[Rfam]
RNA: Bacterial RNase P class A
RNA sequence: CGAGUGGAACAUACGGCGGCGGGACAGCUCGCAAGAGCUGCCUGAGGAAAGUCCGGGCUUCACAGAGGCGUAGCAACUGCUAACGGCAGCCGGGGGUGACCCCAGGGAUAGUGCAACAGAAAGAAACCGCCGUGCUUUGGCACGGUAAGGAUGGAAAGGCGAGGUAAGAGCUCACCAGCGCACUGGCGACUUUGCGGCUAUGUAAACCCUGCUUGAAGCAACAUCCGUAUGGGACAUUAUGCGGAGCCUCGCGCGUCCCGGUGAUGGCGUGAGCCUUGCGGCGACGCAAGGCCAAGAUAGAUCGUCGUUUGAUACAGAACCCGGCUUACGGUCCAGUCGUUUU
Number, nucleotide and partner (000 for none) at each position: 001c339002g338003a337004g000005u335006g334007g333008a332009a000010c330011a000012u000013a308014c307015g306016g305017c304018g303019g000020c044021g043022g042023g041024a000025c040026a039027g038028c037029u036030c000031g000032c000033a000034a000035g000036a029037g028038c027039u026040g025041c023042c022043u021044g020045a000046g000047g000048a000049a327050a326051g325052u000053c324054c323055g322056g321057g320058c218059u217060u216061c215062a000063c000064a000065g000066a000067g248068g247069c246070g000071u000072a213073g212074c211075a210076a000077c089078u088079g087080c086081u000082a000083a000084c000085g000086g080087c079088a078089g077090c000091c105092g103093g102094g101095g100096g000097u000098g000099a000100c095101c094102c093103c092104a000105g091106g209107g208108a000109u000110a000111g207112u206113g203114c202115a201116a000117c000118a000119g000120a000121a000122a000123g000124a000125a000126a000127c150128c149129g146130c145131c144132g143133u142134g141135c140136u000137u000138u000139g000140g135141c134142a133143c132144g131145g130146u129147a000148a000149g128150g127151a000152u000153g000154g000155a000156a000157a000158g176159g175160c000161g173162a172163g171164g000165u000166a000167a000168g000169a000170g000171c163172u162173c161174a000175c159176c158177a000178g198179c196180g195181c194182a193183c000184u000185g190186g000187c000188g000189a000190c185191u000192u000193u182194g181195c180196g179197g000198c178199u000200a000201u115202g114203u113204a000205a000206a112207c111208c107209c106210u075211g074212c073213u072214u000215g061216a060217a059218g058219c000220a000221a000222c266223a265224u264225c263226c000227g000228u000229a000230u000231g259232g258233g257234a256235c255236a000237u000238u000239a000240u253241g252242c251243g250244g249245a000246g069247c068248c067249u244250c243251g242252c241253g240254c000255g235256u234257c233258c232259c231260g000261g000262u000263g225264a224265u223266g222267g000268c000269g000270u000271g000272a000273g292274c291275c290276u289277u288278g287279c286280g285281g000282c000283g000284a000285c280286g279287c278288a277289a276290g275291g274292c273293c000294a000295a000296g000297a000298u000299a000300g000301a000302u000303c018304g017305u016306c015307g014308u013309u000310u000311g000312a000313u000314a000315c000316a000317g000318a000319a000320c057321c056322c055323g054324g053325c051326u050327u049328a000329c000330g010331g000332u008333c007334c006335a005336g000337u003338c002339g001340u000341u000342u000343u000